[Rfam]
RNA: Plastid-ccsA-ndhD-1 3UTR RNA
Organism: Dillenia indica
RNA sequence: UGAAAACCAUUUGAAUCAAGUAGUGCAGUGAUUCAAAUGGUUUUCAUAA
Numbered sequence: 001u002g003a004a005a006a007c008c009a010u011u012u013g014a015a016u017c018a019a020g021u022a023g024u025g026c027a028g029u030g031a032u033u034c035a036a037a038u039g040g041u042u043u044u045c046a047u048a049a
Stems, first nucleotide, its partner, number of pairs: 001046018
Dot-bracket structure: ((((((((((((((((((..........))))))))))))))))))...